[Rfam]
RNA sequence: GUUGGUGUCCAUGAUGACUGAUCUUUUUUCCCCAGCAGAUCGACCCUGUUGACUGUGACUUUUUAAGCCAAACAUGUCUGAAACACCAAC
Numbered sequence: 001g002u003u004g005g006u007g008u009c010c011a012u013g014a015u016g017a018c019u020g021a022u023c024u025u026u027u028u029u030c031c032c033c034a035g036c037a038g039a040u041c042g043a044c045c046c047u048g049u050u051g052a053c054u055g056u057g058a059c060u061u062u063u064u065a066a067g068c069c070a071a072a073c074a075u076g077u078c079u080g081a082a083a084c085a086c087c088a089a090c
Base pairs, nucleotide, nucleotide: 001090002089003088004087005086006085007084008083
The record is a 90-nucleotide RNA sequence from Megalops atlanticus, which matches "Small nucleolar SNORD12/SNORD106" in Rfam. Clan: SNORD12 clan. The base pairs follow the family's consensus structure, which was predicted with RNAalifold. For this family Rfam cites "Identification of 13 novel human modification guide RNAs" (Vitali et al., Nucleic Acids Res, 2003). Rfam links the family to the GO terms RNA processing and nucleolus.